[Rfam]
RNA sequence: CUAUGAGGGAAUGGGAACUUAUGCUCUGCUAGUAAAAGUAUCUCAGCACAGAUUGCUACACAAUGAGACUUGUACUAUAGAAGACAAAAUAAGUU
Number, nucleotide and partner (000 for none) at each position: 001c014002u013003a012004u011005g000006a000007g000008g000009g000010a000011a004012u003013g002014g001015g000016a095017a094018c093019u000020u091021a090022u089023g000024c000025u000026c000027u000028g000029c000030u077031a076032g075033u074034a073035a000036a071037a070038g000039u068040a000041u066042c000043u000044c000045a057046g056047c055048a000049c000050a000051g000052a000053u000054u000055g047056c046057u045058a000059c000060a000061c000062a000063a000064u000065g000066a041067g000068a039069c000070u037071u036072g000073u034074a033075c032076u031077a030078u000079a000080g000081a000082a000083g000084a000085c000086a000087a000088a000089a022090u021091a020092a000093g018094u017095u016